[Rfam]
RNA sequence: UAGCUGCCAUAACUCCGAGCUUUGGUCACUACGUUUUCUGUUUUUCUUAAAUCAGAAUAUAUGUGUUCAGAGCCAGUGACAUACUGUCACCAGGGUCAAUUUAGAAAUGAAUCGGCCUCCCGUAUUUGGAAAGGUGUUCCAUGGCGCAACAA
Numbered sequence: 001u002a003g004c005u006g007c008c009a010u011a012a013c014u015c016c017g018a019g020c021u022u023u024g025g026u027c028a029c030u031a032c033g034u035u036u037u038c039u040g041u042u043u044u045u046c047u048u049a050a051a052u053c054a055g056a057a058u059a060u061a062u063g064u065g066u067u068c069a070g071a072g073c074c075a076g077u078g079a080c081a082u083a084c085u086g087u088c089a090c091c092a093g094g095g096u097c098a099a100u101u102u103a104g105a106a107a108u109g110a111a112u113c114g115g116c117c118u119c120c121c122g123u124a125u126u127u128g129g130a131a132a133g134g135u136g137u138u139c140c141a142u143g144g145c146g147c148a149a150c151a152a
Base pairs, nucleotide, nucleotide: 011138012137013136015134016133019073020072021071022070023069024068025067027065028064029063033060034059036057037056038055039054040053076090077089078088079087080086093118094117095116096115097114099112100111101110102109103108119129120128